[Rfam]
RNA sequence: AUGGCACUGGUAGAAUUCACUGUGAAAGCACACUAUCAGUGAAUUACCAAAGGGCCAUA
Numbered sequence: 001a002u003g004g005c006a007c008u009g010g011u012a013g014a015a016u017u018c019a020c021u022g023u024g025a026a027a028g029c030a031c032a033c034u035a036u037c038a039g040u041g042a043a044u045u046a047c048c049a050a051a052g053g054g055c056c057a058u059a
Base pairs, nucleotide, nucleotide: 001058002057003056004055005054008049009048010047014045015044016043017042018041019040020039021038022037
RNA: mir-183 microRNA precursor family
Organism: Ictalurus punctatus